[Rfam]
RNA sequence: UGGCCCCCAACGUGGGGCUUGGAUACUGGGGGAAAACGUGAGGGUCUGAUGACAGAAGAAAAAGGGGUGCACACACACUCAAAUAAUUUGGAGACGCCGCAGGAGCCUGCCGCUAUGGAGCCAAAGAUAAGUUGGUCAUUCAAUCAUGGGGCAAGAAUUAAGCCAGCAUCAGAUUUAUGUGAUACAGUUAAGAAAAUCUCUACAGGCAAGAGGAGUGAAGGUUAAAACUGAGGAUUUAUUUCAUUUCUUUGAUUUUGUAAAGGACCUUUGUCCCU
Numbered sequence: 001u002g003g004c005c006c007c008c009a010a011c012g013u014g015g016g017g018c019u020u021g022g023a024u025a026c027u028g029g030g031g032g033a034a035a036a037c038g039u040g041a042g043g044g045u046c047u048g049a050u051g052a053c054a055g056a057a058g059a060a061a062a063a064g065g066g067g068u069g070c071a072c073a074c075a076c077a078c079u080c081a082a083a084u085a086a087u088u089u090g091g092a093g094a095c096g097c098c099g100c101a102g103g104a105g106c107c108u109g110c111c112g113c114u115a116u117g118g119a120g121c122c123a124a125a126g127a128u129a130a131g132u133u134g135g136u137c138a139u140u141c142a143a144u145c146a147u148g149g150g151g152c153a154a155g156a157a158u159u160a161a162g163c164c165a166g167c168a169u170c171a172g173a174u175u176u177a178u179g180u181g182a183u184a185c186a187g188u189u190a191a192g193a194a195a196a197u198c199u200c201u202a203c204a205g206g207c208a209a210g211a212g213g214a215g216u217g218a219a220g221g222u223u224a225a226a227a228c229u230g231a232g233g234a235u236u237u238a239u240u241u242c243a244u245u246u247c248u249u250u251g252a253u254u255u256u257g258u259a260a261a262g263g264a265c266c267u268u269u270g271u272c273c274c275u
Base pairs, nucleotide, nucleotide: 006031007030008029012026013025014024037051038050039049087126088125089124090122091121095120099113100112102110132154133153134152137151139150140149141148142147159202160201162198210250211249212248213247214246215245219237220236221235222234223233260275262273263272264271265270
Shown here is a 275-nucleotide sequence from Nannospalax galili, a member of the family "Mason-Pfizer monkey virus packaging signal". Pairs were carried over by alignment from the consensus structure, which was predicted with PFOLD. Rfam's curators write: This family represents a group of sequences that are related to the Mason-Pfizer monkey virus (MPMV) packaging signal. The packaging signal is located in the 5' UTR and is required for specific RNA encapsidation. The literature on the family includes a 2004 paper in Virus Res by Mustafa et al., "Mutational analysis of the predicted secondary RNA structure of the Mason-Pfizer monkey virus packaging signal".